This 128-nucleotide sequence from Bursaphelenchus okinawaensis belongs to the Rfam family "Nematode snoRNA ceN39". Lineage of the source: Eukaryota > Protostomia > Nematoda > Chromadorea > Bursaphelenchus. It is annotated as an H/ACA-box small nucleolar RNA. The match comes from Rfam's covariance-model search (46 bits). On this family, see Jia et al., BMC Mol Biol 2007: "Systematic identification of non-coding RNA 2,2,7-trimethylguanosine cap structures in Caenorhabditis elegans". Pairs were carried over by alignment from the consensus structure, which was predicted with RNAalifold.

[Rfam]
RNA sequence: GUGGCGGAUAGGAACCAGAUAAAGUCUAAUACUUAAUCUGGGCCGAUACCCCGCCGAUAGUGUACGAUGUUCGACGGUCGCAUUUUAAUUUUUAUAAGGAAAAUGCAAUUCAUUUGGACAAGACAUUU
Dot-bracket structure: ..(((((...((..((((((.((((.....)))).)))))).))......)))))..............((....((..((.((((..(((....))).)))).))...))....))...........